[Rfam]
Notes: Rfam assigns this 86-nucleotide sequence from Acanthosepion pharaonis to the family "Selenocysteine transfer RNA". The family has 109 seed sequences and 4,211 matches in Rfam 15.1. The base pairs follow the family's consensus structure, which is taken from published work. The organism belongs to Acanthosepion, within Eukaryota.
RNA sequence: GCCCAGAUGAACCGCAGUGGUCUGUGGUGCAGGCUUCAAACCUGUAGCUGACUAACGUCAGAGUGGUUCGAUUCCACCCUCCGGGC
Numbered sequence: 001g002c003c004c005a006g007a008u009g010a011a012c013c014g015c016a017g018u019g020g021u022c023u024g025u026g027g028u029g030c031a032g033g034c035u036u037c038a039a040a041c042c043u044g045u046a047g048c049u050g051a052c053u054a055a056c057g058u059c060a061g062a063g064u065g066g067u068u069c070g071a072u073u074c075c076a077c078c079c080u081c082c083g084g085g086c
Stems, first nucleotide, its partner, number of pairs: 001086004006081002009078001012027006028046006048061005063077004